This 219-nucleotide sequence belongs to the Rfam family "RAGATH-7 RNA".
RNA sequence: AUUAAUUAUUAUUUAUCUUUAACUUAUAUGCACAGUAAAUUAUUGAUAUCUAAUAGUUAAUAAUCCACGUGGUAGAGGCAUAGUUAGGUUCGCUAUGUGUGCAACUCUUAAAGGUAACUAAUCCUAAGCAAGUAAUGGAGAAUAGGUAUUAACAUUAAUACAUGAGAAUAAUCUCAUAAUGUGCUUGACAGUAUGAUACUAACUGAACAAUAAGUAUCA
Numbered sequence: 001a002u003u004a005a006u007u008a009u010u011a012u013u014u015a016u017c018u019u020u021a022a023c024u025u026a027u028a029u030g031c032a033c034a035g036u037a038a039a040u041u042a043u044u045g046a047u048a049u050c051u052a053a054u055a056g057u058u059a060a061u062a063a064u065c066c067a068c069g070u071g072g073u074a075g076a077g078g079c080a081u082a083g084u085u086a087g088g089u090u091c092g093c094u095a096u097g098u099g100u101g102c103a104a105c106u107c108u109u110a111a112a113g114g115u116a117a118c119u120a121a122u123c124c125u126a127a128g129c130a131a132g133u134a135a136u137g138g139a140g141a142a143u144a145g146g147u148a149u150u151a152a153c154a155u156u157a158a159u160a161c162a163u164g165a166g167a168a169u170a171a172u173c174u175c176a177u178a179a180u181g182u183g184c185u186u187g188a189c190a191g192u193a194u195g196a197u198a199c200u201a202a203c204u205g206a207a208c209a210a211u212a213a214g215u216a217u218c219a
Base pairs, nucleotide, nucleotide: 001061002060003059004058005057006056007055008054009053010052011051014048015047016046022040024038025037026036074108075107076106077105079097080096081095082094083093084092122139123138124137129187130186131185132184133183152182153181154180155179156178194219195218196217197216198215199214200213
Pairs were carried over by alignment from the consensus structure, which is taken from published work. The literature on the family includes a 2015 paper in Nat Chem Biol by Weinberg et al., "New classes of self-cleaving ribozymes revealed by comparative genomics analysis".